[Rfam]
RNA sequence: CGGACCGAGGGGUGCUGCGACGGAACCGACGCGUUCCGCCACGCUCGAUCCGCGAUGCCGAGACAAGGGCGCCCUCCCGAU
Numbered sequence: 001c002g003g004a005c006c007g008a009g010g011g012g013u014g015c016u017g018c019g020a021c022g023g024a025a026c027c028g029a030c031g032c033g034u035u036c037c038g039c040c041a042c043g044c045u046c047g048a049u050c051c052g053c054g055a056u057g058c059c060g061a062g063a064c065a066a067g068g069g070c071g072c073c074c075u076c077c078c079g080a081u
Base pairs, nucleotide, nucleotide: 002051003050004049006047007046008045021038022037023036024035025034026033
Notes
The record is an 81-nucleotide RNA sequence from Lysobacter antibioticus, which matches "SAH (S-adenosyl-L-homocysteine) riboswitch aptamer" in Rfam. Taxonomically the source falls in Lysobacter (Bacteria, Pseudomonadati, Pseudomonadota, Lysobacterales). It scores 41 bits against the family's covariance model. A reference for the family is Wang et al. (2008), "Riboswitches that sense S-adenosylhomocysteine and activate genes involved in coenzyme recycling", Mol Cell. The family's consensus secondary structure is taken from published work.